[Rfam]
RNA sequence: CCCUAGCCCUGAUGGUAGCGGCAUCCUUUUGUUUUGCGCCGGAAGGAAGCAAAACAAAAGAUACAGCGGACAGCAGGAAGAAGC
Numbered sequence: 001c002c003c004u005a006g007c008c009c010u011g012a013u014g015g016u017a018g019c020g021g022c023a024u025c026c027u028u029u030u031g032u033u034u035u036g037c038g039c040c041g042g043a044a045g046g047a048a049g050c051a052a053a054a055c056a057a058a059a060g061a062u063a064c065a066g067c068g069g070a071c072a073g074c075a076g077g078a079a080g081a082a083g084c
Base pairs, nucleotide, nucleotide: 009076010075011074013072014071018067019066023062024061025060028058029057030056031055032054033053034052035051036050037049
RNA: Flavo-1 RNA